RNA sequence: CGAUGGGUUUUACCCAUCGCUAUUAUCUUUCGCCCUUUCAGGGCU
Dot-bracket structure: ((((((((...))))))))............(((((...))))).
Numbered sequence: 001c002g003a004u005g006g007g008u009u010u011u012a013c014c015c016a017u018c019g020c021u022a023u024u025a026u027c028u029u030u031c032g033c034c035c036u037u038u039c040a041g042g043g044c045u
Stems, first nucleotide, its partner, number of pairs: 001019008032044005

A member of the RNA family "Acido-Lenti-1 RNA" from Taibaiella lutea, 45 nucleotides long. Rfam 15.1 lists 2,607 matches to the family in 171 species. Rfam classes the family as a small RNA. The family's consensus secondary structure is taken from published work. NCBI's taxonomy places the organism under Bacteria, Pseudomonadati, Chitinophagia, Chitinophagales, Taibaiella.